Source information: This 86-nucleotide sequence from Alkalimarinus sediminis belongs to the Rfam family "c-di-GMP-I-GGC riboswitch aptamer". A search with the family's covariance model found it, with a score of 60 bits. Its Rfam clan is "c-di-GMP_I riboswitch clan". Pairs were carried over by alignment from the consensus structure, which is taken from published work.
[Rfam]
RNA sequence: CUAUCAAACGCCAAACCUUGCGUGAGUGAGGGACGGAAAACCACAGGCCUAGAGCAACAACCGAUCAGGCGGCUGGGUUACAUGAG
Numbered sequence: 001c002u003a004u005c006a007a008a009c010g011c012c013a014a015a016c017c018u019u020g021c022g023u024g025a026g027u028g029a030g031g032g033a034c035g036g037a038a039a040a041c042c043a044c045a046g047g048c049c050u051a052g053a054g055c056a057a058c059a060a061c062c063g064a065u066c067a068g069g070c071g072g073c074u075g076g077g078u079u080a081c082a083u084g085a086g
Stems, first nucleotide, its partner, number of pairs: 001086001003083002011036002016031006034072001039079004044075003047070003